[Rfam]
RNA: Purine riboswitch aptamer
Organism: Halonatronomonas betaini
RNA sequence: AAUUGAAUAAAAUUUGUACCUCAUAUAACGGUGAGAAUAUGGCUCACAAGUCUCUACCAGGCUGCCGUAAACGGUCUGACUAUGGGGGAAGUGUACCUAGGU
Numbered sequence: 001a002a003u004u005g006a007a008u009a010a011a012a013u014u015u016g017u018a019c020c021u022c023a024u025a026u027a028a029c030g031g032u033g034a035g036a037a038u039a040u041g042g043c044u045c046a047c048a049a050g051u052c053u054c055u056a057c058c059a060g061g062c063u064g065c066c067g068u069a070a071a072c073g074g075u076c077u078g079a080c081u082a083u084g085g086g087g088g089a090a091g092u093g094u095a096c097c098u099a100g101g102u
Stems, first nucleotide, its partner, number of pairs: 019087007031047005058078007
Dot-bracket structure: ..................(((((((.....(((((.......)))))..........(((((((.......)))))))..)))))))...............